[Rfam]
RNA: mir-219 microRNA precursor family
RNA sequence: CUAGCUGCUGAUUGUCCAAACGCAAUUCUUGUCAAUUUUCAAACCCAAACCGAGAAUUGUGCCUGGACAUCUGUAGCUGG
Numbered sequence: 001c002u003a004g005c006u007g008c009u010g011a012u013u014g015u016c017c018a019a020a021c022g023c024a025a026u027u028c029u030u031g032u033c034a035a036u037u038u039u040c041a042a043a044c045c046c047a048a049a050c051c052g053a054g055a056a057u058u059g060u061g062c063c064u065g066g067a068c069a070u071c072u073g074u075a076g077c078u079g080g
Base pairs, nucleotide, nucleotide: 002079003078004077005076006075007074010071011070012069014068015067016066017065018064021061022060023059024058025057026056027055028054029053030052031051